[Rfam]
RNA sequence: GUGGAGGUGAUGACAAUUUCCCCAAAUGAUCGAUUCUGAUUAUGCUAAGCGAUUAUUUAUUUCCUCUCAUCAGAGGAAGUCAAGCCAAUGUUCUGAUCCUU
Numbered sequence: 001g002u003g004g005a006g007g008u009g010a011u012g013a014c015a016a017u018u019u020c021c022c023c024a025a026a027u028g029a030u031c032g033a034u035u036c037u038g039a040u041u042a043u044g045c046u047a048a049g050c051g052a053u054u055a056u057u058u059a060u061u062u063c064c065u066c067u068c069a070u071c072a073g074a075g076g077a078a079g080u081c082a083a084g085c086c087a088a089u090g091u092u093c094u095g096a097u098c099c100u101u
Stems, first nucleotide, its partner, number of pairs: 001101001003099003
RNA: Small nucleolar RNA Z103